[Rfam]
RNA sequence: GAGCCCUAUGAUCGAUGAUUGGCAAAUCCUCUCGAGGAACCGAUCGUUGAGAACCCCUUUGCCUU
Numbered sequence: 001g002a003g004c005c006c007u008a009u010g011a012u013c014g015a016u017g018a019u020u021g022g023c024a025a026a027u028c029c030u031c032u033c034g035a036g037g038a039a040c041c042g043a044u045c046g047u048u049g050a051g052a053a054c055c056c057c058u059u060u061g062c063c064u065u
Stems, first nucleotide, its partner, number of pairs: 001065003005061001013049010028037003
The family of this 65-nucleotide sequence from Drosophila melanogaster is "Selenocysteine insertion sequence 1". By type it is a cis-regulatory element. Rfam's curators put it in the seed alignment.